[Rfam]
RNA sequence: CGUCUCAUGGAGAGCAAAGCCCCGGCUUGCUGACCGGCAACCCUCGUAGUUCGCGGUGGGGUGCCCCGGGUGAUGACCGGGCCCGGCCCGUUGUCGUGCUGGGCAAGCGCGGACC
Numbered sequence: 001c002g003u004c005u006c007a008u009g010g011a012g013a014g015c016a017a018a019g020c021c022c023c024g025g026c027u028u029g030c031u032g033a034c035c036g037g038c039a040a041c042c043c044u045c046g047u048a049g050u051u052c053g054c055g056g057u058g059g060g061g062u063g064c065c066c067c068g069g070g071u072g073a074u075g076a077c078c079g080g081g082c083c084c085g086g087c088c089c090g091u092u093g094u095c096g097u098g099c100u101g102g103g104c105a106a107g108c109g110c111g112g113a114c115c
Base pairs, nucleotide, nucleotide: 002077003076004075009035010034013031014030015029018027019026036065037064038063041061042060043059045056081104082103083102084101085100086099087098089096090095
SAM (S-adenosyl methionine) riboswitch aptamer: a 115-nucleotide sequence from Catellatospora sp. IY07-71. Taxonomically the source falls in Catellatospora (Bacteria, Actinomycetota, Micromonosporales, Micromonosporaceae). The match comes from Rfam's covariance-model search (70 bits).